A member of the RNA family "TPP riboswitch aptamer (THI element)" from Imbroritus primus, 96 nucleotides long.
RNA sequence: CUUCCAGGCUAGGGGUCCUGCGCAUGGCGCGGGUGAGAAAAACCCUUCGAACCUGAUCUCGAUAAUGCGAGCGCAGGGAAGCUGGAACAGUAUGGC
Numbered sequence: 001c002u003u004c005c006a007g008g009c010u011a012g013g014g015g016u017c018c019u020g021c022g023c024a025u026g027g028c029g030c031g032g033g034u035g036a037g038a039a040a041a042a043c044c045c046u047u048c049g050a051a052c053c054u055g056a057u058c059u060c061g062a063u064a065a066u067g068c069g070a071g072c073g074c075a076g077g078g079a080a081g082c083u084g085g086a087a088c089a090g091u092a093u094g095g096c
Stems, first nucleotide, its partner, number of pairs: 007083004011046004016040001017033005052077004058071004
From the family's description: Vitamin B(1) in its active form thiamin pyrophosphate (TPP) is an essential coenzyme that is synthesised by coupling of pyrimidine and thiazole moieties in bacteria.
The source organism's lineage runs through Bacteria, Pseudomonadati, Pseudomonadota, Burkholderiaceae and Imbroritus.
Its family is annotated with thiamine pyrophosphate binding in the Gene Ontology.
A search with the family's covariance model found it, with a score of 65 bits.